[Rfam]
RNA sequence: UGAGCUUGGGGACGUGUUGAUCCUCGGACCGGCACUGCGCGGUCGCCGAAGGGUCCCGACAUCAGGGGCACCGACGGUCCGAGGGGAGCGAGUGGCGAGACCGACCUCAGAACCG
Number, nucleotide and partner (000 for none) at each position: 001u115002g114003a000004g000005c000006u110007u109008g108009g107010g106011g105012a000013c090014g089015u088016g000017u000018u000019g000020a000021u000022c084023c083024u082025c081026g080027g079028a078029c077030c000031g000032g000033c000034a000035c000036u000037g000038c000039g000040c000041g102042g101043u098044c097045g096046c095047c094048g000049a000050a000051g000052g000053g000054u000055c000056c000057c000058g000059a000060c000061a000062u000063c000064a000065g000066g000067g000068g000069c000070a000071c000072c000073g000074a000075c000076g000077g029078u028079c027080c026081g025082a024083g023084g022085g000086g000087a000088g015089c014090g013091a000092g000093u000094g047095g046096c045097g044098a043099g000100a000101c042102c041103g000104a000105c011106c010107u009108c008109a007110g006111a000112a000113c000114c002115g001
RNA: c-di-GMP-II-GAG riboswitch aptamer